[Rfam]
Nucleotides: 054
Base pairs, nucleotide, nucleotide: 004044005043006042007041008040010020011019012018013017029054030053031052032051033050034049035047036046
Number, partner (000 for none) and nucleotide at each position: 001000g002000u003000a004044c005043g006042u007041u008040c009000a010020u011019c012018c013017c014000a015000u016000u017013g018012g019011g020010a021000c022000g023000c024000a025000u026000g027000c028000u029054g030053c031052c032051u033050a034049a035047c036046c037000a038000u039000g040008g041007a042006a043005c044004g045000g046036g047035g048000g049034u050033u051032a052031g053030g054029u